[Rfam]
RNA sequence: CUUGUAAAAAGGCAAACUUAUUGAAAAAUAAGGACGCAAAACUACGGGUCUAAGGCCAAUACAGGUUAGGACCGCCGGGUCGUCUAA
Numbered sequence: 001c002u003u004g005u006a007a008a009a010a011g012g013c014a015a016a017c018u019u020a021u022u023g024a025a026a027a028a029u030a031a032g033g034a035c036g037c038a039a040a041a042c043u044a045c046g047g048g049u050c051u052a053a054g055g056c057c058a059a060u061a062c063a064g065g066u067u068a069g070g071a072c073c074g075c076c077g078g079g080u081c082g083u084c085u086a087a
Stems, first nucleotide, its partner, number of pairs: 012037002017032006041080003045077003048072003055066003